A member of the RNA family "Small nucleolar RNA SNORD60" from Conger conger, 87 nucleotides long. The match comes from Rfam's covariance-model search (66 bits). Rfam 15.1 lists 825 matches to the family in 373 species. Rfam links the family to the GO terms RNA processing and nucleolus. Lineage of the source: Eukaryota > Gnathostomata > Anguilliformes > Congridae > Conger.

RNA sequence: AGCCUGUGAUGACACUUAAUAAACUUUUCUGACACCUCGUAUGACUGCUGCCUUGCAGCAUCUGAUUACAUGUUCUUUCUGAGGCUC
Numbered sequence: 001a002g003c004c005u006g007u008g009a010u011g012a013c014a015c016u017u018a019a020u021a022a023a024c025u026u027u028u029c030u031g032a033c034a035c036c037u038c039g040u041a042u043g044a045c046u047g048c049u050g051c052c053u054u055g056c057a058g059c060a061u062c063u064g065a066u067u068a069c070a071u072g073u074u075c076u077u078u079c080u081g082a083g084g085c086u087c
Stems, first nucleotide, its partner, number of pairs: 001086004047059005